The family of this 126-nucleotide RNA sequence from Jaculus jaculus is "Small nucleolar RNA SNORA20". Rfam links the family to the GO terms nucleolus and RNA processing. The family's consensus secondary structure was predicted with ILM. About the family: ACA20 is a member of the H/ACA class of snoRNA that guide the sites of modification of uridines to pseudouridines.
RNA sequence: UUUCCCAUUUAUUUUCUGCUAUAGUCUCUCAGUGAUAUGAGCAGUUAUAUGCAUAGGAUAAAACAAUACUGGACCAUUGCAAAUUGAGGUGAAGUAUUUCAUCUCCUCUACAUGGUCUAGACAUUG
Numbered sequence: 001u002u003u004c005c006c007a008u009u010u011a012u013u014u015u016c017u018g019c020u021a022u023a024g025u026c027u028c029u030c031a032g033u034g035a036u037a038u039g040a041g042c043a044g045u046u047a048u049a050u051g052c053a054u055a056g057g058a059u060a061a062a063a064c065a066a067u068a069c070u071g072g073a074c075c076a077u078u079g080c081a082a083a084u085u086g087a088g089g090u091g092a093a094g095u096a097u098u099u100c101a102u103c104u105c106c107u108c109u110a111c112a113u114g115g116u117c118u119a120g121a122c123a124u125u126g
Base pairs, nucleotide, nucleotide: 003058004057005056007054008053016044017043018042019041020040022037023036025035026034069120070119071118072117073116074115075114076113078112079111081109086105087104088103089102090101091100092099093098
Dot-bracket structure: ..(((.((.......(((((.((.((.......))))..)))))........)).)))..........((((((((.((.(....((((((((....))))))))...).))))))))))......